[Rfam]
RNA sequence: ACAAGCAACUAAAAAGCGUAGCUAUUCACUACGCCAGUUCUUGCCUGCUGAACUCAUAUUGUAAAUGACCUGUAAAGGCCAUUUU
Numbered sequence: 001a002c003a004a005g006c007a008a009c010u011a012a013a014a015a016g017c018g019u020a021g022c023u024a025u026u027c028a029c030u031a032c033g034c035c036a037g038u039u040c041u042u043g044c045c046u047g048c049u050g051a052a053c054u055c056a057u058a059u060u061g062u063a064a065a066u067g068a069c070c071u072g073u074a075a076a077g078g079c080c081a082u083u084u085u
Base pairs, nucleotide, nucleotide: 003046005044006043007042008038009037010036016034017033018032019031020030021029063084064083065082066081067080069078070077071076